The family of this 75-nucleotide RNA from Streptomyces formicae is "ASpks TB sRNA".
RNA sequence: CUUCACCGAACCCAGCCGCAGCGGACGAUCCUCCGGGCGCCCCUGGCCAUACGUCGCCAGCAGCGCCUGCGCCUC
Number, nucleotide and partner (000 for none) at each position: 001c000002u000003u000004c000005a000006c000007c000008g000009a000010a000011c000012c000013c000014a000015g000016c024017c023018g000019c000020a000021g000022c000023g017024g016025a000026c000027g000028a000029u000030c000031c071032u000033c069034c000035g000036g000037g000038c065039g064040c000041c000042c000043c060044u059045g058046g000047c056048c000049a054050u000051a000052c000053g000054u049055c000056g047057c000058c045059a044060g043061c000062a000063g000064c039065g038066c000067c000068u000069g033070c000071g031072c000073c000074u000075c000
Pairs were carried over by alignment from the consensus structure, which is taken from published work.